[Rfam]
RNA sequence: CAGACAUUUAUUUUUAUCCAGUUUCUUUCCAAGGUGAAGAUAACUCUUUGUAAACGUCCUAAAGUCAUGUAGACUGUAGUAACUUUCUGUUCACACUUUACAAAUAAAAAGGGUGGAUCAUUCUACUAAUGACAUUU
Numbered sequence: 001c002a003g004a005c006a007u008u009u010a011u012u013u014u015u016a017u018c019c020a021g022u023u024u025c026u027u028u029c030c031a032a033g034g035u036g037a038a039g040a041u042a043a044c045u046c047u048u049u050g051u052a053a054a055c056g057u058c059c060u061a062a063a064g065u066c067a068u069g070u071a072g073a074c075u076g077u078a079g080u081a082a083c084u085u086u087c088u089g090u091u092c093a094c095a096c097u098u099u100a101c102a103a104a105u106a107a108a109a110a111g112g113g114u115g116g117a118u119c120a121u122u123c124u125a126c127u128a129a130u131g132a133c134a135u136u137u
Stems, first nucleotide, its partner, number of pairs: 003058003007054005020045004024040005077131002080128002096111004

Small Cajal body specific RNA 24: a 137-nucleotide RNA from Aotus nancymaae. The family has 23 seed sequences and 689 matches in Rfam 15.1. The match comes from Rfam's covariance-model search (104 bits). Rfam describes the family as follows. scaRNAs are a specific class of small nuclear RNAs which localise to the Cajal bodies and guide the modification of RNA polymerase II transcribed spliceosomal RNAs U1, U2, U4, U5 and U12. ACA12 belongs to the H/ACA box class of guide RNAs as it has the predicted hairpin-hinge-hairpin-tail structure,the conserved H/ACA-box motifs and is found associated with GAR1. The literature on the family includes a 2002 paper in EMBO J by Darzacq et al., "Cajal body-specific small nuclear RNAs: a novel class of 2'-O-methylation and pseudouridylation guide RNAs". It is annotated as a small Cajal body RNA. NCBI's taxonomy places the organism under Eukaryota, Euteleostomi, Amniota, Haplorrhini, Aotus. Rfam links the family to the GO terms RNA processing, Cajal body and nucleolus.